[Rfam]
RNA sequence: GCUACAUUUAGUGCCGCCUUUGUCUUUUUCAUAGUUUUCUUUUUUUAAUUUAUUUAAGGACAUAAUUGUUUUACUUGGUGGCAGAAAUCU
Number, nucleotide and partner (000 for none) at each position: 001g000002c000003u000004a000005c000006a000007u000008u000009u000010a000011g000012u083013g082014c081015c080016g079017c078018c077019u000020u000021u000022g074023u073024c000025u000026u000027u000028u000029u000030c000031a000032u000033a067034g066035u065036u000037u000038u062039c000040u060041u059042u058043u057044u056045u000046u000047a000048a000049u000050u000051u000052a000053u000054u000055u000056a044057a043058g042059g041060a040061c000062a038063u000064a000065a035066u034067u033068g000069u000070u000071u000072u000073a023074c022075u000076u000077g018078g017079u016080g015081g014082c013083a012084g000085a000086a000087a000088u000089c000090u000
Record summary
A member of the RNA family "Small nucleolar RNA snoR110" from Raphanus sativus, 90 nucleotides long. Pairs were carried over by alignment from the consensus structure, which was predicted with WAR. Gene Ontology terms of the family: RNA processing and nucleolus. The family's RNA type in Rfam is H/ACA-box small nucleolar RNA. It scores 89 bits against the family's covariance model.